A member of the RNA family "XIST RNA A repeat" from Sciurus vulgaris, 26 nucleotides long. The match comes from Rfam's covariance-model search (39 bits). Lineage of the source: Eukaryota > Chordata > Gnathostomata > Dipnotetrapodomorpha > Sciurus. Rfam 15.1 lists 900 matches to the family in 145 species.
Nucleotides: 026
Stems, first nucleotide, its partner, number of pairs: 001012004015024003
Number, partner (000 for none) and nucleotide at each position: 001012g002011c003010c004009c005000a006000u007000c008000g009004g010003g011002g012001c013000c014000u015024c016023g017022g018000a019000u020000a021000c022017c023016u024015g025000c026000u